[Rfam]
RNA: MIR869 microRNA precursor family
RNA sequence: GCCCACCAUACAGAUUUCCAUACGGUAGAAGAAAGUAUCACCUAUCUCAACUCCAGGAUUGGACCAGUACUAGGCUCAUCAUAGUUAAGCCACAAUCCACGAUUCCUCAUCAGCUAUAAAAGCAAAACCUUCAUAUCUAUCCUUGUUUCUAAACCAGUCUCAUAGAUAUGAAGGCUUUGUUUCUGAUGAAGGAUUGUGGGAUUGUUGCUUAACACUGAUGAGCAUAUUAUUGGUUCAAUUCUGGUGUUGAGAUAGUUGACACUUCUUAUACCGUAUGAAAACAUGUGUGGUGGGC
Dot-bracket structure: ((((((((((((..(((.(((((((((.(((((.((.(((.(((((((((..(((((((((((((((((.((.(((..(((...(((((..((((((((((((((.(((((((..(((((.......((((.(((((...........................))))).)))).)))))..))))))).))))))))).)))))..)))))...)))..))).)).)))))))))))))))))..))))))))).))).))))))).))))))))).)))..))))))))))))
Numbered sequence: 001g002c003c004c005a006c007c008a009u010a011c012a013g014a015u016u017u018c019c020a021u022a023c024g025g026u027a028g029a030a031g032a033a034a035g036u037a038u039c040a041c042c043u044a045u046c047u048c049a050a051c052u053c054c055a056g057g058a059u060u061g062g063a064c065c066a067g068u069a070c071u072a073g074g075c076u077c078a079u080c081a082u083a084g085u086u087a088a089g090c091c092a093c094a095a096u097c098c099a100c101g102a103u104u105c106c107u108c109a110u111c112a113g114c115u116a117u118a119a120a121a122g123c124a125a126a127a128c129c130u131u132c133a134u135a136u137c138u139a140u141c142c143u144u145g146u147u148u149c150u151a152a153a154c155c156a157g158u159c160u161c162a163u164a165g166a167u168a169u170g171a172a173g174g175c176u177u178u179g180u181u182u183c184u185g186a187u188g189a190a191g192g193a194u195u196g197u198g199g200g201a202u203u204g205u206u207g208c209u210u211a212a213c214a215c216u217g218a219u220g221a222g223c224a225u226a227u228u229a230u231u232g233g234u235u236c237a238a239u240u241c242u243g244g245u246g247u248u249g250a251g252a253u254a255g256u257u258g259a260c261a262c263u264u265c266u267u268a269u270a271c272c273g274u275a276u277g278a279a280a281a282c283a284u285g286u287g288u289g290g291u292g293g294g295c
Stems, first nucleotide, its partner, number of pairs: 001295012015281003019277009029267005035262002038259003042255009053244017071226002074223003079218003085212005092205005097199009107189007116180005128174004133169005